[Rfam]
RNA sequence: UGGCUCUGUGUGGAAGACUAGUGAUUUUGUUGUUGUGUUUGUAAAGGUGACAACAAAUCAUAGCCUGCCAUACAGCCCAGGCUG
Dot-bracket structure: (....((((((((.((.((.(((((((.((((((..............))))))))))))))).)).)))))))).....)...